[Rfam]
Shown here is a 142-nucleotide sequence from Propithecus coquereli, a member of the family "U4 spliceosomal RNA".
Rfam classes the family as a spliceosomal small nuclear RNA.
A search with the family's covariance model found it, with a score of 105 bits.
Lineage of the source: Eukaryota > Metazoa > Euteleostomi > Sarcopterygii > Propithecus.
Clan: U4 clan.
U4 small nuclear RNA (U4 snRNA) is a component of the major U2-dependent spliceosome.
Nucleotides: 142
Stems, first nucleotide, its partner, number of pairs: 020052003024048001026047003034042002085118003088114003092110001094109004131142004
Number, partner (000 for none) and nucleotide at each position: 001000a002000g003000c004000u005000u006000u007000g008000c009000u010000c011000a012000g013000u014000g015000g016000c017000a018000g019000u020052a021051u022050c023000a024048u025000a026047g027046c028045c029000a030000a031000u032000g033000a034042g035041g036000u037000u038000u039000a040000u041035c042034c043000c044000a045028g046027g047026c048024a049000c050022g051021a052020u053000u054000a055000u056000u057000g058000c059000u060000a061000a062000u063000u064000g065000a066000a067000a068000a069000c070000u071000u072000u073000u074000c075000u076000c077000a078000a079000u080000g081000c082000c083000c084000u085118g086117c087116c088114a089113u090112g091000a092110c093000g094109a095108a096107c097106u098000u099000g100000a101000a102000a103000u104000a105000u106097a107096g108095u109094u110092g111000g112090c113089a114088u115000u116087g117086g118085c119000a120000a121000u122000u123000u124000u125000u126000g127000a128000c129000a130000a131142u132141c133140u134139c135000u136000a137000a138000g139134g140133a141132g142131a